[Rfam]
RNA sequence: GUGAAGUGAUGAUGAAGUUUAUCCAUUCUCUGAGUUUUGCUGUUUUGCCCUUUCCUUCCCGUCUCGAUUCCUGUCCUAGGGUCUUGAUGUUGUGUAGCCUCAAGACACUUUCCAACCUUCCAAUGUUCUAUUGGGAGCUGGGAGUGCUCCAGUGGCUGCUGGAAGGACAUGGGCAGAAAAGGCAGAGCCAGGGCCCCUUUGUUCUGGGGCUCUGGCUUGAACCAAGAAGAAUGAAACUAUCUGAUCAC
Dot-bracket structure: .........((((...((.....((((((((..((...(((.(((((((((.((((((..((.(((..((((.....))))...))).))...((((((........((..((.(.(((((((((...))))))))).)))..).).......)))))).)).)))).).))))))))..))).((((((((.((((........)))).))))))))..))..)).)))))).....))...)))).

Annotation:
The family of this 248-nucleotide RNA from Salvator merianae is "Small nucleolar RNA SNORD17". Rfam describes the family as follows. The snoRNA HBI-43 belongs to the C/D family of snoRNAs, guiding 2'O-ribose methylation at position U3797 of the 28S rRNA. Pseudouridylation in position U3797 is predicted to be guided by the H/ACA snoRNA ACA48. Taxonomically the source falls in Salvator (Eukaryota, Chordata, Tetrapoda, Episquamata). The family's RNA type in Rfam is C/D-box small nucleolar RNA.